A member of the RNA family "c-di-AMP riboswitch aptamer (ydaO/yuaA leader)" from Paenibacillus phyllosphaerae, 251 nucleotides long.
The base pairs follow the family's consensus structure.
The match comes from Rfam's covariance-model search (59 bits).
Gene Ontology terms of the family: regulation of gene expression and cyclic-di-AMP binding.
RNA sequence: CUUUUACACGAGCCGAAACUUUAUGUACGGGGGACUAAACAGGGGCAUGCCACGCAUGGAACCUGCCGCUUCUUGCUCAACCAUGCAAGAGCGGAACUUCGCGAAUACCGCUGCAGUUUGGACAUGUCUUCCAAUGCGGUUGCCGCUUGGGGUGAAUCGCCAAGGACGCUUGCUUCGCGUCCGGGAGCGUAGGGCUGAACUCCUCGGCCCGAAUCCGACAACUAACCUCGUAGGCCACAAGCAGGAGCAGA
Numbered sequence: 001c002u003u004u005u006a007c008a009c010g011a012g013c014c015g016a017a018a019c020u021u022u023a024u025g026u027a028c029g030g031g032g033g034a035c036u037a038a039a040c041a042g043g044g045g046c047a048u049g050c051c052a053c054g055c056a057u058g059g060a061a062c063c064u065g066c067c068g069c070u071u072c073u074u075g076c077u078c079a080a081c082c083a084u085g086c087a088a089g090a091g092c093g094g095a096a097c098u099u100c101g102c103g104a105a106u107a108c109c110g111c112u113g114c115a116g117u118u119u120g121g122a123c124a125u126g127u128c129u130u131c132c133a134a135u136g137c138g139g140u141u142g143c144c145g146c147u148u149g150g151g152g153u154g155a156a157u158c159g160c161c162a163a164g165g166a167c168g169c170u171u172g173c174u175u176c177g178c179g180u181c182c183g184g185g186a187g188c189g190u191a192g193g194g195c196u197g198a199a200c201u202c203c204u205c206g207g208c209c210c211g212a213a214u215c216c217g218a219c220a221a222c223u224a225a226c227c228u229c230g231u232a233g234g235c236c237a238c239a240a241g242c243a244g245g246a247g248c249a250g251a
Base pairs, nucleotide, nucleotide: 012235013234014233018026019025027231028230029229030228031227032226038148150216151215152214158189159188160187192210193209194208195207